[Rfam]
RNA sequence: AAUCUGUCAUGGAUAACCCAGUGGAAGGCUCACCGCCAUGCUAAUUACCCCGCUUCGGUCGCAAGGCCAGCGGGAAAGGUGCCUGGUACGAAUCCUGGGGUUGGCAUUUUCACUCGUGCGAGUAAUCCACGACGCUGGAAGCCACUAAGCAAUGGAAAUGACCCUUGAGGGAAGCAAUUCUGCAGAGACAUUUCCACCCCGGGAUGGCGUCGCCAGAUUACACCGUCCUGUUACAGGGAACUUGGCAAUUUGGUGUGACAACUACUAUU
Number, nucleotide and partner (000 for none) at each position: 001a000002a014003u013004c012005u000006g000007u000008c000009a000010u000011g000012g004013a003014u002015a000016a000017c000018c000019c000020a266021g265022u264023g263024g262025a000026a000027g000028g000029c257030u000031c255032a254033c253034c252035g251036c000037c000038a000039u247040g246041c245042u244043a243044a242045u000046u240047a000048c238049c237050c236051c000052g067053c066054u065055u064056c000057g062058g000059u000060c000061g000062c057063a000064a055065g054066g053067c052068c000069a232070g231071c230072g000073g228074g227075a226076a000077a000078g224079g223080u222081g221082c000083c216084u215085g214086g213087u212088a210089c209090g208091a000092a205093u204094c203095c202096u201097g200098g199099g198100g197101u000102u144103g142104g000105c141106a000107u140108u139109u138110u137111c134112a000113c000114u132115c131116g130117u129118g128119c000120g127121a126122g000123u000124a000125a000126u121127c120128c118129a117130c116131g115132a114133c000134g111135c000136u000137g110138g109139a108140a107141g105142c103143c000144a102145c149146u000147a000148a000149g145150c000151a000152a000153u196154g195155g194156a193157a192158a191159u190160g000161a000162c000163c000164c187165u186166u185167g000168a000169g000170g000171g180172a179173a178174g000175c000176a000177a000178u173179u172180c171181u000182g000183c000184a000185g166186a165187g164188a000189c000190a159191u158192u157193u156194c155195c154196a153197c100198c099199c098200c097201g096202g095203g094204a093205u092206g000207g000208c090209g089210u088211c000212g087213c086214c085215a084216g083217a000218u000219u000220a000221c081222a080223c079224c078225g000226u075227c074228c073229u000230g071231u070232u069233a000234c000235a000236g050237g049238g048239a000240a046241c000242u044243u043244g042245g041246c040247a039248a000249u000250u000251u035252g034253g033254u032255g031256u000257g029258a000259c000260a000261a000262c024263u023264a022265c021266u020267a000268u000269u000

This 269-nucleotide RNA from Penicillium cf. viridicatum belongs to the Rfam family "Fungal signal recognition particle RNA". The base pairs follow the family's consensus structure, which is taken from published work. The literature on the family includes a 2002 paper in Curr Opin Struct Biol by Wild et al., "Towards the structure of the mammalian signal recognition particle". The family has 50 seed sequences and 748 matches in Rfam 15.1. The source organism's lineage runs through Eukaryota, Pezizomycotina, Eurotiomycetes, Eurotiales and Penicillium.